[Rfam]
RNA sequence: AUCUGCACUGAGUGGCCAGAUUAUUAUGCGUUCAGAGACCGUAAUAAUCUGGCCACUCAGUGUACAU
Numbered sequence: 001a002u003c004u005g006c007a008c009u010g011a012g013u014g015g016c017c018a019g020a021u022u023a024u025u026a027u028g029c030g031u032u033c034a035g036a037g038a039c040c041g042u043a044a045u046a047a048u049c050u051g052g053c054c055a056c057u058c059a060g061u062g063u064a065c066a067u
Stems, first nucleotide, its partner, number of pairs: 004064014019049010